[Rfam]
RNA sequence: CCAUUCUACUAGGGGAGUCUAAUAGUGCUUAGACUGAGAGAAGAACGCCCAAAGUUCUUUGACCCUCCGAACCUGAUCUGGGUCAUACCAGCGUAGGGAAGUAGAGAGUGCAGGCU
Numbered sequence: 001c002c003a004u005u006c007u008a009c010u011a012g013g014g015g016a017g018u019c020u021a022a023u024a025g026u027g028c029u030u031a032g033a034c035u036g037a038g039a040g041a042a043g044a045a046c047g048c049c050c051a052a053a054g055u056u057c058u059u060u061g062a063c064c065c066u067c068c069g070a071a072c073c074u075g076a077u078c079u080g081g082g083u084c085a086u087a088c089c090a091g092c093g094u095a096g097g098g099a100a101g102u103a104g105a106g107a108g109u110g111c112a113g114g115c116u
Stems, first nucleotide, its partner, number of pairs: 006104005011066004016060001017034005041059005072097004078091004
The record is a 116-nucleotide RNA from Priestia koreensis, which matches "TPP riboswitch aptamer (THI element)" in Rfam.
Its family is annotated with thiamine pyrophosphate binding in the Gene Ontology.
The base pairs follow the family's consensus structure, which is taken from published work.
From the family's description: Vitamin B(1) in its active form thiamin pyrophosphate (TPP) is an essential coenzyme that is synthesised by coupling of pyrimidine and thiazole moieties in bacteria.